The family of this 96-nucleotide RNA from Propionispira arboris is "skipping-rope RNA". The organism belongs to Propionispira, within Bacteria. The family's consensus secondary structure is taken from published work. It scores 57 bits against the family's covariance model.
RNA sequence: AUUCUUUGAGGUGGUAAAUUUCGUGUGAACCACACGCCGAUGGUACCGACAGGGGCAACCCGAGAGAUGCAGGAGAAGGCACGCCUGCCAAGGAAU
Numbered sequence: 001a002u003u004c005u006u007u008g009a010g011g012u013g014g015u016a017a018a019u020u021u022c023g024u025g026u027g028a029a030c031c032a033c034a035c036g037c038c039g040a041u042g043g044u045a046c047c048g049a050c051a052g053g054g055g056c057a058a059c060c061c062g063a064g065a066g067a068u069g070c071a072g073g074a075g076a077a078g079g080c081a082c083g084c085c086u087g088c089c090a091a092g093g094a095a096u
Base pairs, nucleotide, nucleotide: 001096002095003094004093005092006091007090008089011033012032013031014030015029023082024081025080026079035064036056037055038054069088070087071086072085073084